Rfam assigns this 138-nucleotide RNA sequence from Desemzia incerta to the family "Enterococcus sRNA 68 (Lacto-3 RNA)". The family's consensus secondary structure is taken from published work. For this family Rfam cites "Whole-genome mapping of 5' RNA ends in bacteria by tagged sequencing: a comprehensive view in Enterococcus faecalis" (Innocenti et al., RNA, 2015).

[Rfam]
RNA sequence: UGCGAUGAGUUGACCGGCAAUCAGAUGAUUUAUCAUUUCGCUUCGGCGACAUAGUGAUUGCCCAAAAUUAGACAGGGCACAUGUGCGUAAGCACACUGCAGGAUGCAGGUGUUUGGAUCCCUCUGUUUUGUGGAAUUC
Numbered sequence: 001u002g003c004g005a006u007g008a009g010u011u012g013a014c015c016g017g018c019a020a021u022c023a024g025a026u027g028a029u030u031u032a033u034c035a036u037u038u039c040g041c042u043u044c045g046g047c048g049a050c051a052u053a054g055u056g057a058u059u060g061c062c063c064a065a066a067a068u069u070a071g072a073c074a075g076g077g078c079a080c081a082u083g084u085g086c087g088u089a090a091g092c093a094c095a096c097u098g099c100a101g102g103a104u105g106c107a108g109g110u111g112u113u114u115g116g117a118u119c120c121c122u123c124u125g126u127u128u129u130g131u132g133g134a135a136u137u138c
Base pairs, nucleotide, nucleotide: 019059020058021057022056023055024037025036026035027034028033038049039048040047041046076113077112078111079110080109096108097107098106099105125138128135129134